[Rfam]
RNA sequence: CAAGCCAGAAGAGGCGCGUCGCCCAGGCAGUGUGUUGGAGGAACCGUAUCCGGCGAUAACACAUCAGGGGGAGCGACGCCGAGGUGGUAAACACACGGUGUGUUGACUGUCGGCUACAGGGGCUGAAUCCUCUGGGUUGUCACCAGAAACGUCCACAGUCGGACGUUUUGCAAGGUGGAGCGCUUCUGGGUGA
Dot-bracket structure: .....((((((....(((((((.(.....((((((((...................))))))))......).)))))))...((((((.(((((.....))))).))))))((((.((((((......)))))))))).(((((.............................)))))....)))))).....
Numbered sequence: 001c002a003a004g005c006c007a008g009a010a011g012a013g014g015c016g017c018g019u020c021g022c023c024c025a026g027g028c029a030g031u032g033u034g035u036u037g038g039a040g041g042a043a044c045c046g047u048a049u050c051c052g053g054c055g056a057u058a059a060c061a062c063a064u065c066a067g068g069g070g071g072a073g074c075g076a077c078g079c080c081g082a083g084g085u086g087g088u089a090a091a092c093a094c095a096c097g098g099u100g101u102g103u104u105g106a107c108u109g110u111c112g113g114c115u116a117c118a119g120g121g122g123c124u125g126a127a128u129c130c131u132c133u134g135g136g137u138u139g140u141c142a143c144c145a146g147a148a149a150c151g152u153c154c155a156c157a158g159u160c161g162g163a164c165g166u167u168u169u170g171c172a173a174g175g176u177g178g179a180g181c182g183c184u185u186c187u188g189g190g191u192g193a
Stems, first nucleotide, its partner, number of pairs: 006188006016079007024071001030064008083111006090104005112138004117134006140178005
A member of the RNA family "Lysine riboswitch aptamer" from Pantoea ananatis, 193 nucleotides long. A search with the family's covariance model found it, with a score of 93 bits.